[Rfam]
RNA sequence: AAAAAAGCAAUACCACCCUCUUGAUAGAACAAGAGGGUGGUAUUGCUUUUUUUAU
Numbered sequence: 001a002a003a004a005a006a007g008c009a010a011u012a013c014c015a016c017c018c019u020c021u022u023g024a025u026a027g028a029a030c031a032a033g034a035g036g037g038u039g040g041u042a043u044u045g046c047u048u049u050u051u052u053u054a055u
Stems, first nucleotide, its partner, number of pairs: 001052014018035006
Dot-bracket structure: ((((((((((((((...((((((......))))))...))))))))))))))...
Plastid-psbA-3 3UTR RNA: a 55-nucleotide RNA sequence. Plastid psbA-3 is a non-coding RNA (ncRNA) present in plastids. It was identified in inverted repeat sequences in the 3 prime untranslate region (3UTR) of photosystem II quinone-binding protein (psbA). The literature on the family includes a 2023 paper in Plant Commun by Richter et al., "Retrograde signaling in plants: A critical review focusing on the GUN pathway and beyond".